[Rfam]
RNA sequence: ACUUAUACAUGAUAACAUAUCGGGUUGUCGACCUGCCUUAAGACCGAUCUUAAGACUAUAAGA
Numbered sequence: 001a002c003u004u005a006u007a008c009a010u011g012a013u014a015a016c017a018u019a020u021c022g023g024g025u026u027g028u029c030g031a032c033c034u035g036c037c038u039u040a041a042g043a044c045c046g047a048u049c050u051u052a053a054g055a056c057u058a059u060a061a062g063a
Stems, first nucleotide, its partner, number of pairs: 002062006008035001011029006022045002030036001037054007

Source information
A member of the RNA family "2dG-I riboswitch aptamer (M. florum)" from Mesoplasma florum, 63 nucleotides long. Clan: Purine riboswitches. Rfam's curators put it in the seed alignment. The family has 4 seed sequences and 24 matches in Rfam 15.1.